[Rfam]
The record is a 107-nucleotide sequence from Brucella ovis, which matches "Alphaproteobacterial ar15" in Rfam. Rfam's curators put it in the seed alignment. Lineage of the source: Bacteria > Alphaproteobacteria > Hyphomicrobiales > Brucella > Brucella ovis. Pairs were carried over by alignment from the consensus structure. Rfam classes the family as a small RNA.

RNA sequence: ACUUACCGUUGUGCCUCCUCCCAUUGCGCACGGUAAGUGUUCCCCUCUGGAGGUUUGCCCAAGUGGCACCUUCAUAACUUGGCCGGACUUCCCAGUCCGACUCUUUU
Numbered sequence: 001a002c003u004u005a006c007c008g009u010u011g012u013g014c015c016u017c018c019u020c021c022c023a024u025u026g027c028g029c030a031c032g033g034u035a036a037g038u039g040u041u042c043c044c045c046u047c048u049g050g051a052g053g054u055u056u057g058c059c060c061a062a063g064u065g066g067c068a069c070c071u072u073c074a075u076a077a078c079u080u081g082g083c084c085g086g087a088c089u090u091c092c093c094a095g096u097c098c099g100a101c102u103c104u105u106u107u
Stems, first nucleotide, its partner, number of pairs: 001038005007032003011029004048074007081098002083095001085093002